[Rfam]
RNA sequence: CGGCUCUCACAACGGCUUCCUGACGUGAGGGCGACAACCAUUGGAGCA
Numbered sequence: 001c002g003g004c005u006c007u008c009a010c011a012a013c014g015g016c017u018u019c020c021u022g023a024c025g026u027g028a029g030g031g032c033g034a035c036a037a038c039c040a041u042u043g044g045a046g047c048a
Stems, first nucleotide, its partner, number of pairs: 004031007013022002015047003019044002
A member of the RNA family "SAM/SAH riboswitch aptamer" from Celeribacter marinus, 48 nucleotides long. Its family is annotated with S-adenosylmethionine metabolic process and regulation of gene expression in the Gene Ontology. The match comes from Rfam's covariance-model search (57 bits). On this family, see Weickhmann et al., Nucleic Acids Res 2019: "The structure of the SAM/SAH-binding riboswitch".